[Rfam]
RNA sequence: ACCGUUCGGUAUUUUCCUCCCAUUUCACCGAGCGGUGUUCCCCUCUGAAGGUUAUGACCUUCUUUUUUUGGCCGGGCCGUUUCGCGCCCGGCCAUUUUU
Numbered sequence: 001a002c003c004g005u006u007c008g009g010u011a012u013u014u015u016c017c018u019c020c021c022a023u024u025u026c027a028c029c030g031a032g033c034g035g036u037g038u039u040c041c042c043c044u045c046u047g048a049a050g051g052u053u054a055u056g057a058c059c060u061u062c063u064u065u066u067u068u069u070g071g072c073c074g075g076g077c078c079g080u081u082u083c084g085c086g087c088c089c090g091g092c093c094a095u096u097u098u099u
Stems, first nucleotide, its partner, number of pairs: 001036005007030003047062006069094006075087001
Dot-bracket structure: (((((.(((..................))).)))))..........((((((....))))))......(((((((...........).)))))).....
Shown here is a 99-nucleotide RNA from Mesorhizobium australicum, a member of the family "Alphaproteobacterial ar15". Pairs were carried over by alignment from the consensus structure. The family has 61 seed sequences and 316 matches in Rfam 15.1. The family is grouped with related families in Rfam's "suhB sRNA clan".